[Rfam]
RNA sequence: CGGCACCGAGGAGCGCUGCGACAGGAUCUUCCUGCCAGGCUCGGGCCAGGCUCAGCAACACAACGGCGCUCAUCAUUU
Dot-bracket structure: .(((.((((............(((((...)))))......)))))))...............................
Numbered sequence: 001c002g003g004c005a006c007c008g009a010g011g012a013g014c015g016c017u018g019c020g021a022c023a024g025g026a027u028c029u030u031c032c033u034g035c036c037a038g039g040c041u042c043g044g045g046c047c048a049g050g051c052u053c054a055g056c057a058a059c060a061c062a063a064c065g066g067c068g069c070u071c072a073u074c075a076u077u078u
Stems, first nucleotide, its partner, number of pairs: 002047003006044004022034005